[Rfam]
RNA sequence: UGACCACUUCCUUCGGGGAGUUAAGCCCAGACGGACAGGCGGGUCAAGUGCCGG
Numbered sequence: 001u002g003a004c005c006a007c008u009u010c011c012u013u014c015g016g017g018g019a020g021u022u023a024a025g026c027c028c029a030g031a032c033g034g035a036c037a038g039g040c041g042g043g044u045c046a047a048g049u050g051c052c053g054g
Stems, first nucleotide, its partner, number of pairs: 001046005006021006

Shown here is a 54-nucleotide sequence from Eubacteriaceae bacterium Marseille-Q4139, a member of the family "Streptococcus sRNA SpF59 (ldcC RNA)". A search with the family's covariance model found it, with a score of 62 bits. The organism belongs to Eubacteriaceae, within Bacteria. The family's RNA type in Rfam is small RNA.